Shown here is a 145-nucleotide RNA from Smithella sp. F21, a member of the family "c-di-AMP riboswitch aptamer (ydaO/yuaA leader)". This family represents a conserved RNA structure found upstream of the ydaO and yuaA genes in Bacillus subtilis and related genes in other bacteria. The ydaO/yuaA element is thought to act as a genetic 'off' switch for the ydaO and yuaA genes in its native state.

RNA sequence: CCAAAUAUUAAGCCUAAAUCCAUUAUAACCAAAUGGAUACGGGGGAACCGAGUUACUUUGGGGCGUAUUUCUUCCAUCAUGAAGAAUAGGACUCUUCCCUGUCCGAGCCCGUCAGCUAACCUCGGCGGCGUAUGGGAGAAAUAAG
Numbered sequence: 001c002c003a004a005a006u007a008u009u010a011a012g013c014c015u016a017a018a019u020c021c022a023u024u025a026u027a028a029c030c031a032a033a034u035g036g037a038u039a040c041g042g043g044g045g046a047a048c049c050g051a052g053u054u055a056c057u058u059u060g061g062g063g064c065g066u067a068u069u070u071c072u073u074c075c076a077u078c079a080u081g082a083a084g085a086a087u088a089g090g091a092c093u094c095u096u097c098c099c100u101g102u103c104c105g106a107g108c109c110c111g112u113c114a115g116c117u118a119a120c121c122u123c124g125g126c127g128g129c130g131u132a133u134g135g136g137a138g139a140a141a142u143a144a145g
Base pairs, nucleotide, nucleotide: 012129013128014127018038019037020036021035022034023033024032040124041123042122043121044120049060050059061110062109063108069086070085071084072083089104090103091102092101